Source information: Rfam assigns this 123-nucleotide sequence from Martinezella rhizogenes to the family "Rhizobiales sRNA Atu_C8". The sequence is in the family's curated seed alignment. The family's RNA type in Rfam is small RNA.
RNA sequence: GAAAAACUCGACGGUUCUUAUUGUGGUGGGACAGCGCAUGGGCAGGAUGGUGUAACCAUCCGGCGAUAGCCACCCAUGCGCUAGAUGACAGGCUCCCCAAGGAGCCUUUUUUUAUGCCCGAAA
Numbered sequence: 001g002a003a004a005a006a007c008u009c010g011a012c013g014g015u016u017c018u019u020a021u022u023g024u025g026g027u028g029g030g031a032c033a034g035c036g037c038a039u040g041g042g043c044a045g046g047a048u049g050g051u052g053u054a055a056c057c058a059u060c061c062g063g064c065g066a067u068a069g070c071c072a073c074c075c076a077u078g079c080g081c082u083a084g085a086u087g088a089c090a091g092g093c094u095c096c097c098c099a100a101g102g103a104g105c106c107u108u109u110u111u112u113u114a115u116g117c118c119c120g121a122a123a
Stems, first nucleotide, its partner, number of pairs: 007028001009026001029119002032116001033082010045061006063070002087108001090107007